[Rfam]
RNA: Purine riboswitch aptamer
Organism: Paraliobacillus sp. PM-2
RNA sequence: AACAAUUGAAUGAAAGUACCUCAUAUAAUUUCAGGGAUAAGGCCUGACUGUUUCUACCUGUCACCGUAAAUGACGGACUAUGAGGGAAGAUGAUACAUGA
Numbered sequence: 001a002a003c004a005a006u007u008g009a010a011u012g013a014a015a016g017u018a019c020c021u022c023a024u025a026u027a028a029u030u031u032c033a034g035g036g037a038u039a040a041g042g043c044c045u046g047a048c049u050g051u052u053u054c055u056a057c058c059u060g061u062c063a064c065c066g067u068a069a070a071u072g073a074c075g076g077a078c079u080a081u082g083a084g085g086g087a088a089g090a091u092g093a094u095a096c097a098u099g100a
Stems, first nucleotide, its partner, number of pairs: 019085007031047005058076006